The record is a 53-nucleotide sequence from Mikania micrantha, which matches "Plastid-atpF group II-D1 intron" in Rfam. About the family: Plastid atpF is a non-coding RNA (ncRNA) recognised in plastids. It has been reported in the intron group II-D1 region of ATP synthase (atpF) genes.
[Rfam]
RNA sequence: AAAUAUUUUAUCAAUAUUAAACACUCAUAUCGAUAAAAUGAUUUGAACUGCUU
Number, nucleotide and partner (000 for none) at each position: 001a000002a000003a000004u000005a000006u000007u000008u000009u000010a000011u033012c032013a000014a030015u029016a028017u027018u000019a000020a000021a000022c000023a000024c000025u000026c000027a017028u016029a015030u014031c000032g012033a011034u000035a000036a000037a000038a000039u000040g000041a000042u000043u000044u000045g000046a000047a000048c000049u000050g000051c000052u000053u000
NCBI's taxonomy places the organism under Eukaryota, Streptophytina, Euphyllophyta, asterids, Mikania.
On this family, see Richter et al., Plant Commun 2023: "Retrograde signaling in plants: A critical review focusing on the GUN pathway and beyond".
The match comes from Rfam's covariance-model search (55 bits).